[Rfam]
RNA sequence: CACACACGGACUUUGGUGUCUGCCCGGGAGAAAUCCGGCUGAAACCUCCGGUGGCAUCUAGGAAAUCCAUCCGAAAUGCCUGUGUCCGUGGAGGCCAACCGGAAAGGAACUAAAGAA
Dot-bracket structure: (.(.(((((((...((......(..(........).).......))......(((((..................)))))...)))))))).)........................

Record summary:
This 117-nucleotide sequence from Mesorhizobium sp. WSM3876 belongs to the Rfam family "rpsB sRNA". Lineage of the source: Bacteria > Pseudomonadati > Pseudomonadota > Phyllobacteriaceae > Mesorhizobium.